[Rfam]
RNA sequence: GCCAAGGCCCUAGAAGGCUUGGCACACGCGGGCGCCGGUCGUGUCGGCGCUCUCAUAUCCAUGUUGCUCAUUGGAGGAUGUGGCUAUGAGCU
Numbered sequence: 001g002c003c004a005a006g007g008c009c010c011u012a013g014a015a016g017g018c019u020u021g022g023c024a025c026a027c028g029c030g031g032g033c034g035c036c037g038g039u040c041g042u043g044u045c046g047g048c049g050c051u052c053u054c055a056u057a058u059c060c061a062u063g064u065u066g067c068u069c070a071u072u073g074g075a076g077g078a079u080g081u082g083g084c085u086a087u088g089a090g091c092u
Stems, first nucleotide, its partner, number of pairs: 001023006008017002030051001032050007052090006059083007067076003
The family of this 92-nucleotide RNA sequence from Enterovirga aerilata is "Repression of heat shock gene expression (ROSE) element".
A reference for the family is Nocker et al. (2001), "A mRNA-based thermosensor controls expression of rhizobial heat shock genes", Nucleic Acids Res.
Taxonomically the source falls in Enterovirga (Bacteria, Pseudomonadati, Alphaproteobacteria, Hyphomicrobiales).
The family's RNA type in Rfam is RNA thermoregulator.
The family's consensus secondary structure is taken from published work.
Rfam describes the family as follows. This family represents a 5' UTR cis-regulatory element found in heat shock mRNAs and is known as the ROSE (repression of heat shock gene expression) element. The ROSE element is a negative regulator of heat shock gene expression.